RNA sequence: AUGCGGUGAUGAUACCCAUCUUGGUUUCGCUUUUUGCUGAAUUCCGAUGAAGACGAAUUUCUCUUGGCUGUCUGAGCAU
Numbered sequence: 001a002u003g004c005g006g007u008g009a010u011g012a013u014a015c016c017c018a019u020c021u022u023g024g025u026u027u028c029g030c031u032u033u034u035u036g037c038u039g040a041a042u043u044c045c046g047a048u049g050a051a052g053a054c055g056a057a058u059u060u061c062u063c064u065u066g067g068c069u070g071u072c073u074g075a076g077c078a079u
Stems, first nucleotide, its partner, number of pairs: 001079004

Rfam assigns this 79-nucleotide RNA sequence from Thinocorus orbignyianus to the family "Small nucleolar RNA SNORD53/SNORD92". Pairs were carried over by alignment from the consensus structure. Its family is annotated with RNA processing and nucleolus in the Gene Ontology.